[Rfam]
RNA sequence: AGGGCGGUAUCCCCAGUGGAACUGCACCUGUCAGCCGAUAUGGCAUAACGUCGUCUGUAUUUCUUUCUAUUUUAAAAAAAGCCAGUAGUACUCUGCUCUGAGCCGUAGGGACCGAGACAGAAGG
Numbered sequence: 001a002g003g004g005c006g007g008u009a010u011c012c013c014c015a016g017u018g019g020a021a022c023u024g025c026a027c028c029u030g031u032c033a034g035c036c037g038a039u040a041u042g043g044c045a046u047a048a049c050g051u052c053g054u055c056u057g058u059a060u061u062u063c064u065u066u067c068u069a070u071u072u073u074a075a076a077a078a079a080a081g082c083c084a085g086u087a088g089u090a091c092u093c094u095g096c097u098c099u100g101a102g103c104c105g106u107a108g109g110g111a112c113c114g115a116g117a118c119a120g121a122a123g124g
Base pairs, nucleotide, nucleotide: 001029002028003027004025005024006023007022008021010020011019093120094119095118096116097115098114100112103110104109
The record is a 124-nucleotide sequence from Paenibacillus sabuli, which matches "pan motif" in Rfam. The match comes from Rfam's covariance-model search (39 bits).